[Rfam]
RNA sequence: GAUCUUAUAAACAGCAAUUCUCUUCUUUUCAAAACAAAAACGACCAUGUUUAACAAAACUUAACAAGAUCUG
Numbered sequence: 001g002a003u004c005u006u007a008u009a010a011a012c013a014g015c016a017a018u019u020c021u022c023u024u025c026u027u028u029u030c031a032a033a034a035c036a037a038a039a040a041c042g043a044c045c046a047u048g049u050u051u052a053a054c055a056a057a058a059c060u061u062a063a064c065a066a067g068a069u070c071u072g
Base pairs, nucleotide, nucleotide: 001070002069003068004067005066006065
About this RNA:
A member of the RNA family "Class I RNA from Dictyostelium" from Tieghemostelium lacteum, 72 nucleotides long. Rfam describes the family as follows. Dictyostelium Class I RNA was first reported for Aspegren et al. 2004 in Dictyostelium discoideum. Sucgang et al. 2011 identify putative homologs of Class I RNA in D. discoideum and D. purpureum. Avesson et al. 2011 report that Class I RNA present a down regulation during the development of social amoeba Dictyostelium discoideum, they also found that deletion of one of the Class I RNAs, DdR-21, results in aberrant development. Kjellin et al. 2020 report an extended number of expressed Class I RNA genes in class Dictyostelia, in their analysis they remark that Class I RNA appear to be unique to dictyostelid social amoebas, and they hypothesise that Class I RNAs were involved in evolution of multicellularity in Dictyostelia. On this family, see Aspegren et al., Nucleic Acids Res 2004: "Novel non-coding RNAs in Dictyostelium discoideum and their expression during development". Rfam classes the family as a non-coding RNA gene. Rfam's curators put it in the seed alignment. The organism belongs to Tieghemostelium, within Eukaryota.